A member of the RNA family "Small nucleolar RNA SNORD112" from Choloepus hoffmanni, 78 nucleotides long. It is annotated as a C/D-box small nucleolar RNA. It is one of the family's seed sequences. Taxonomically the source falls in Choloepus (Eukaryota, Bilateria, Chordata, Sarcopterygii). Rfam links the family to the GO terms nucleolus and RNA processing. On this family, see Cavaille et al., Hum Mol Genet 2002: "Identification of tandemly-repeated C/D snoRNA genes at the imprinted human 14q32 domain reminiscent of those at the Prader-Willi/Angelman syndrome region".
RNA sequence: UGCGACUAAUGCUGAGACAGUUUUUAUGAACAAAGGAUCGCGACUAACUCAGUUCUGCACAAAAUGCUGAGGUCCAUC
Numbered sequence: 001u002g003c004g005a006c007u008a009a010u011g012c013u014g015a016g017a018c019a020g021u022u023u024u025u026a027u028g029a030a031c032a033a034a035g036g037a038u039c040g041c042g043a044c045u046a047a048c049u050c051a052g053u054u055c056u057g058c059a060c061a062a063a064a065u066g067c068u069g070a071g072g073u074c075c076a077u078c
Stems, first nucleotide, its partner, number of pairs: 001076002004074004